[Rfam]
RNA sequence: AUGCGAAUAUAUUCUCACCGGCCUAAUCGCUCUGUGGUUUUUGCCGGGCUAGACAUUCGCUAGAUCAUAACUAGACUGUGUCAUCAGAGCCAGCAACUUCAUCUGGUUCUGAUUAUUUAUUGCUAGUUACACGG
Numbered sequence: 001a002u003g004c005g006a007a008u009a010u011a012u013u014c015u016c017a018c019c020g021g022c023c024u025a026a027u028c029g030c031u032c033u034g035u036g037g038u039u040u041u042u043g044c045c046g047g048g049c050u051a052g053a054c055a056u057u058c059g060c061u062a063g064a065u066c067a068u069a070a071c072u073a074g075a076c077u078g079u080g081u082c083a084u085c086a087g088a089g090c091c092a093g094c095a096a097c098u099u100c101a102u103c104u105g106g107u108u109c110u111g112a113u114u115a116u117u118u119a120u121u122g123c124u125a126g127u128u129a130c131a132c133g134g
Base pairs, nucleotide, nucleotide: 003060004059005058018047019046020045021044022043025040026039027037028036070127071126072125073124076122084112085111086110087109088108089107090106091105092104093103
Small nucleolar RNA SNORA72: a 134-nucleotide RNA from Leptobrachium leishanense. It is annotated as an H/ACA-box small nucleolar RNA. Rfam's curators write: U72 is a member of the H/ACA class of snoRNAs. The snoRNA gene is located in intron 4 of the ribosomal L30 protein gene in human, mouse and chicken. The literature on the family includes a 1997 paper in Genes Dev by Ganot et al., "The family of box ACA small nucleolar RNAs is defined by an evolutionarily conserved secondary structure and ubiquitous sequence elements essential for RNA accumulation". The family's consensus secondary structure was predicted with PFOLD.